The family of this 131-nucleotide RNA sequence from Thermoclostridium caenicola is "FMN riboswitch aptamer (RFN element)".
RNA sequence: UACAAUCUUCGGGGCAGGGUGAAAGUCCCUACCGGCGGUAAUAUGGCAUGAGCCAUUAGCCCGCGAGCGUUAAGCACGAUCCGGUGAGAUUCCGGAGCCGACAGUUAAAGUCUGGAUGGGAGAAGAUGAUC
Numbered sequence: 001u002a003c004a005a006u007c008u009u010c011g012g013g014g015c016a017g018g019g020u021g022a023a024a025g026u027c028c029c030u031a032c033c034g035g036c037g038g039u040a041a042u043a044u045g046g047c048a049u050g051a052g053c054c055a056u057u058a059g060c061c062c063g064c065g066a067g068c069g070u071u072a073a074g075c076a077c078g079a080u081c082c083g084g085u086g087a088g089a090u091u092c093c094g095g096a097g098c099c100g101a102c103a104g105u106u107a108a109a110g111u112c113u114g115g116a117u118g119g120g121a122g123a124a125g126a127u128g129a130u131c
Stems, first nucleotide, its partner, number of pairs: 005127006017029003031111002033100002035064004059098002080096005102114003
Lineage of the source: Bacteria > Bacillota > Clostridia > Eubacteriales > Thermoclostridium. The match comes from Rfam's covariance-model search (113 bits).